[Rfam]
RNA sequence: UCUGGCCGGCCAAAAGCCAGCCACGCCGCGGAUUAAUAGUUGCAUCCGUUUUAUUGGCCAGGAUGUAAUGGUUAGGUAAUA
Number, nucleotide and partner (000 for none) at each position: 001u000002c020003u019004g018005g017006c016007c000008g000009g000010c000011c000012a000013a000014a000015a000016g006017c005018c004019a003020g002021c000022c000023a000024c000025g000026c000027c000028g000029c000030g000031g000032a000033u075034u074035a073036a072037u071038a000039g069040u068041u067042g066043c065044a064045u063046c062047c061048g000049u000050u000051u000052u000053a000054u000055u000056g000057g000058c000059c000060a000061g047062g046063a045064u044065g043066u042067a041068a040069u039070g000071g037072u036073u035074a034075g033076g000077u000078a000079a000080u000081a000
L13-Bacteroidia ribosomal protein leader: an 81-nucleotide RNA. Pairs were carried over by alignment from the consensus structure, which is taken from published work. By type it is a cis-regulatory leader. Rfam's curators put it in the seed alignment.